Shown here is a 47-nucleotide RNA from Streptomyces sp. HGB0020, a member of the family "L31-Actinobacteria ribosomal protein leader". It is one of the family's seed sequences. A reference for the family is Eckert and Weinberg (2020), "Discovery of 20 novel ribosomal leader candidates in bacteria and archaea", BMC Microbiol. NCBI's taxonomy places the organism under Bacteria, Bacillati, Actinomycetes, Kitasatosporales, Streptomyces. Its Rfam clan is "Ribosomal Protein L31 Leader clan".

[Rfam]
RNA sequence: UCGGCUCCGGUUCACGUGGCAGCAAUCCGCGGCUGCGACCCGGCGCC
Numbered sequence: 001u002c003g004g005c006u007c008c009g010g011u012u013c014a015c016g017u018g019g020c021a022g023c024a025a026u027c028c029g030c031g032g033c034u035g036c037g038a039c040c041c042g043g044c045g046c047c
Stems, first nucleotide, its partner, number of pairs: 003047003007043004015037006022030002